[Rfam]
RNA sequence: AAGCAUGUUAUCCUAAGGACCAGAGCUUGUUUGUGGUUUAUGGUUCUCCAAGUACAUGCAAGAACAUCGGGUGGUCUUUGACUGCUGUGGCUCCUUUCUGCCACUGGCAGCCACUCAGCUGUCCUACAGAA
Number, nucleotide and partner (000 for none) at each position: 001a000002a000003g000004c000005a000006u000007g000008u000009u000010a000011u000012c000013c042014u000015a000016a000017g000018g038019a037020c036021c035022a034023g000024a032025g000026c000027u000028u000029g000030u000031u000032u024033g000034u022035g021036g020037u019038u018039u000040a000041u000042g013043g000044u000045u000046c000047u000048c000049c000050a000051a000052g000053u000054a000055c000056a000057u000058g000059c000060a000061a000062g000063a000064a000065c000066a000067u000068c000069g124070g123071g122072u121073g120074g119075u000076c000077u000078u000079u000080g000081a000082c000083u000084g111085c110086u000087g104088u103089g102090g101091c000092u000093c000094c000095u000096u000097u000098c000099u000100g000101c090102c089103a088104c087105u000106g000107g000108c000109a000110g085111c084112c000113a000114c000115u000116c000117a000118g000119c074120u073121g072122u071123c070124c069125u000126a000127c000128a000129g000130a000131a000

Small nucleolar RNA SNORA44: a 131-nucleotide sequence from Menidia menidia. The family has 27 seed sequences and 1,056 matches in Rfam 15.1. A search with the family's covariance model found it, with a score of 74 bits. The organism belongs to Menidia, within Eukaryota. The family's RNA type in Rfam is H/ACA-box small nucleolar RNA.